RNA: Small nucleolar RNA SNORA17
RNA sequence: ACUGCCCCUAGAGGCGUUACAGAUGUGGCUGCGGUGUCACAUUUGUGUCAUUGGGUGGCAGAGAGAAGAGAGGCUUGUCUACGCUCAGUGUUCUGGCCUGUGGACGCCUGGAUGAUGAAUAGUCUGACACU
Numbered sequence: 001a002c003u004g005c006c007c008c009u010a011g012a013g014g015c016g017u018u019a020c021a022g023a024u025g026u027g028g029c030u031g032c033g034g035u036g037u038c039a040c041a042u043u044u045g046u047g048u049c050a051u052u053g054g055g056u057g058g059c060a061g062a063g064a065g066a067a068g069a070g071a072g073g074c075u076u077g078u079c080u081a082c083g084c085u086c087a088g089u090g091u092u093c094u095g096g097c098c099u100g101u102g103g104a105c106g107c108c109u110g111g112a113u114g115a116u117g118a119a120u121a122g123u124c125u126g127a128c129a130c131u
Base pairs, nucleotide, nucleotide: 002061003060004059005058006057007055008054009053010052011051013049014048015047019046020045021044022043024041025040026039027038028037029036068128071125072124073123074122075121076119082114083113085111086110087109088108089106090105091104092103093102
Dot-bracket structure: .((((((((((.(((...((((.((((((......)))))).))))))).))))).)))))......(..((((((.....((.(((((((((........))))).)))).))....).)))))..)...